[Rfam]
RNA sequence: AGAGCACACAUUAAUUAUCCCUAAGGCCAUGGGAUAAAAAAAAAAACACUGCAAAACCAAGUUAGCAUACCCUAGAAUGGUUCUAGCACGAUUACUAACCUAUGACUCUAAUACCAGUUGAAGGGAAUGUUAG
Numbered sequence: 001a002g003a004g005c006a007c008a009c010a011u012u013a014a015u016u017a018u019c020c021c022u023a024a025g026g027c028c029a030u031g032g033g034a035u036a037a038a039a040a041a042a043a044a045a046a047c048a049c050u051g052c053a054a055a056a057c058c059a060a061g062u063u064a065g066c067a068u069a070c071c072c073u074a075g076a077a078u079g080g081u082u083c084u085a086g087c088a089c090g091a092u093u094a095c096u097a098a099c100c101u102a103u104g105a106c107u108c109u110a111a112u113a114c115c116a117g118u119u120g121a122a123g124g125g126a127a128u129g130u131u132a133g
Stems, first nucleotide, its partner, number of pairs: 009123001011121006022110002025107002028104006050088002055082002058079002062075004

The record is a 133-nucleotide sequence from Vitis rotundifolia, which matches "MIR845_2 microRNA precursor family" in Rfam. Its family is annotated with miRNA-mediated post-transcriptional gene silencing and RISC complex in the Gene Ontology.